[Rfam]
RNA sequence: AUCCAAAACAGAGUGGUGAUGUCUUUUCCAAGCACACAUCUGUUUGCUCUGUGUGGAAAAUGACUGUUGCUGAGUGAUUUUUAGAU
Numbered sequence: 001a002u003c004c005a006a007a008a009c010a011g012a013g014u015g016g017u018g019a020u021g022u023c024u025u026u027u028c029c030a031a032g033c034a035c036a037c038a039u040c041u042g043u044u045u046g047c048u049c050u051g052u053g054u055g056g057a058a059a060a061u062g063a064c065u066g067u068u069g070c071u072g073a074g075u076g077a078u079u080u081u082u083a084g085a086u
Base pairs, nucleotide, nucleotide: 001086002085003084005082006081008079009076010075

A member of the RNA family "Small nucleolar RNA SNORD121A" from Cephalopterus ornatus, 86 nucleotides long.
Pairs were carried over by alignment from the consensus structure, which was predicted with WAR.
The family has 26 seed sequences and 881 matches in Rfam 15.1.